Rfam assigns this 117-nucleotide RNA from Phaeobacter sp. 22II1-1F12B to the family "ALIL pseudoknot".
[Rfam]
Nucleotides: 117
Base pairs, nucleotide, nucleotide: 016032017031018030019029020028078117079116080115081114082113089112090111092109093108094107096105098103
Number, partner (000 for none) and nucleotide at each position: 001000c002000g003000c004000a005000u006000a007000u008000u009000u010000c011000g012000c013000g014000g015000c016032g017031g018030c019029g020028g021000a022000g023000c024000u025000c026000g027000a028020c029019c030018g031017c032016c033000c034000g035000u036000u037000c038000a039000a040000g041000c042000g043000a044000u045000g046000a047000u048000c049000g050000c051000c052000u053000u054000u055000a056000u057000c058000g059000a060000a061000g062000a063000g064000c065000u066000c067000c068000g069000g070000a071000g072000c073000g074000u075000c076000u077000u078117u079116g080115g081114u082113g083000u084000c085000g086000g087000g088000c089112c090111g091000g092109u093108c094107u095000g096105c097000c098103g099000g100000g101000u102000u103098c104000u105096g106000g107094g108093g109092a110000u111090c112089g113082c114081a115080c116079c117078a